[Rfam]
Shown here is a 188-nucleotide RNA from Roseburia sp. CAG:303, a member of the family "Lysine riboswitch aptamer". The source organism's lineage runs through Bacteria, Bacillati, Bacillota, Lachnospiraceae and Roseburia.
RNA sequence: AAUAGAAAUAGAGGUUGCAUUUUUUAAGAGUAAUAUCCCGGAUGUGGGCAGUGCAGAAGAAAGGAUAAGAAAGGGAAAAAUGCCGAAGGGAUCAGAUUUUCCUGCCGUUUUGUAUCCCUGGGCAUGCAGUGAAGAACUGUAUGACUGUCAUCUGAUGGGAAAUCCCUGGAUGGAGAGCUAUGAACAUU
Dot-bracket structure: .......((((.....(((((((((........(((((........................))))).......)))))))))...((((((((((.(........).)))).))))))((.((((((((.....)))))))).)).(((((((............)))))))....)))).......